[Rfam]
RNA sequence: UAAACCUUUUAAUAAAGUCCCGUGAGGCUUGGAAGGGUGUUGAGCUGUCAAAAGAUGAGUACAAACCAUUCAUCUAUUAAGACAGACACGAAACGACCAACACCCUGAUCAAUGAACCACAGAUCAGGGUGUUUUUUUAA
Numbered sequence: 001u002a003a004a005c006c007u008u009u010u011a012a013u014a015a016a017g018u019c020c021c022g023u024g025a026g027g028c029u030u031g032g033a034a035g036g037g038u039g040u041u042g043a044g045c046u047g048u049c050a051a052a053a054g055a056u057g058a059g060u061a062c063a064a065a066c067c068a069u070u071c072a073u074c075u076a077u078u079a080a081g082a083c084a085g086a087c088a089c090g091a092a093a094c095g096a097c098c099a100a101c102a103c104c105c106u107g108a109u110c111a112a113u114g115a116a117c118c119a120c121a122g123a124u125c126a127g128g129g130u131g132u133u134u135u136u137u138u139a140a
Base pairs, nucleotide, nucleotide: 003038005036006035007034008033009032015030016029017028018027019026048080050078051077053075054074055073056072057071058070059069099133100132101131102130103129104128105127106126107125108124109123110122

Shown here is a 140-nucleotide sequence from Bacillus sp. cl95, a member of the family "PyrR binding site". About the family: This family represents the PyrR binding site and terminator structure. The base pairs follow the family's consensus structure, which is taken from published work. The family has 41 seed sequences and 1,498 matches in Rfam 15.1. NCBI's taxonomy places the organism under Bacteria, Bacillati, Bacillota, Bacillaceae, Bacillus. By type it is a cis-regulatory element.